[Rfam]
RNA sequence: ACUAUAGUACGCCACAAGCUACUAUGUUGAUCUUUACGAUCAGCUUUCUAUCUGCUCGGCAAAUACAAAACUUAGAUUUGAUGUAUGCAGAGUAUGAAAUAUAAAAACGCAUUGUCAAU
Numbered sequence: 001a002c003u004a005u006a007g008u009a010c011g012c013c014a015c016a017a018g019c020u021a022c023u024a025u026g027u028u029g030a031u032c033u034u035u036a037c038g039a040u041c042a043g044c045u046u047u048c049u050a051u052c053u054g055c056u057c058g059g060c061a062a063a064u065a066c067a068a069a070a071c072u073u074a075g076a077u078u079u080g081a082u083g084u085a086u087g088c089a090g091a092g093u094a095u096g097a098a099a100u101a102u103a104a105a106a107a108c109g110c111a112u113u114g115u116c117a118a119u
Stems, first nucleotide, its partner, number of pairs: 001027002004025006011019002053061003076119001078118005086111003095103002
RNA: Bacteriophage Diversity-Generating Retroelement RNA